Shown here is a 203-nucleotide sequence from Lipomyces starkeyi, a member of the family "Small nucleolar RNA snR43".
Pairs were carried over by alignment from the consensus structure, which is taken from published work.
On this family, see Balakin et al., Cell 1996: "The RNA world of the nucleolus: two major families of small RNAs defined by different box elements with related functions".
The family's RNA type in Rfam is H/ACA-box small nucleolar RNA.
Clan: SNORA9 clan.

RNA sequence: UACUCCUGUUUCUGCCCCAAGGCCUUUAUGCUCCAUAGGUUUCUGGGUUCUGGUUAUGGAGAAGAUUGAGCCCUGUGUAUGAUUCUCUAAGUCAAUCAUUCGCAUAUAAUUGAGAAAUCAUAUGCAGGGAUCGUGGGCGCCGUUAUGAGAAACCUGCCUGCAUGAUUAAUUGCUGGUGGCCGUGGUCGUGGCUCCCUACAUCU
Numbered sequence: 001u002a003c004u005c006c007u008g009u010u011u012c013u014g015c016c017c018c019a020a021g022g023c024c025u026u027u028a029u030g031c032u033c034c035a036u037a038g039g040u041u042u043c044u045g046g047g048u049u050c051u052g053g054u055u056a057u058g059g060a061g062a063a064g065a066u067u068g069a070g071c072c073c074u075g076u077g078u079a080u081g082a083u084u085c086u087c088u089a090a091g092u093c094a095a096u097c098a099u100u101c102g103c104a105u106a107u108a109a110u111u112g113a114g115a116a117a118u119c120a121u122a123u124g125c126a127g128g129g130a131u132c133g134u135g136g137g138c139g140c141c142g143u144u145a146u147g148a149g150a151a152a153c154c155u156g157c158c159u160g161c162a163u164g165a166u167u168a169a170u171u172g173c174u175g176g177u178g179g180c181c182g183u184g185g186u187c188g189u190g191g192c193u194c195c196c197u198a199c200a201u202c203u
Stems, first nucleotide, its partner, number of pairs: 003061004016047004020042006071129012083116005089110001135196003140191004154182001156180003161175001164173001